[Rfam]
RNA: Trypanosomatid snoRNA TB10Cs4H3
RNA sequence: GACGCCCCUCCAACCGCUUCGCACCGUGCUGCCCCGUGCACUGCGGAGUGAUAUAUGUGGCGGAGAU
Dot-bracket structure: ..(((((........((((((((..((((........)))))))))))).......).)))).....
Numbered sequence: 001g002a003c004g005c006c007c008c009u010c011c012a013a014c015c016g017c018u019u020c021g022c023a024c025c026g027u028g029c030u031g032c033c034c035c036g037u038g039c040a041c042u043g044c045g046g047a048g049u050g051a052u053a054u055a056u057g058u059g060g061c062g063g064a065g066a067u
Stems, first nucleotide, its partner, number of pairs: 003062004007057001016049008026041004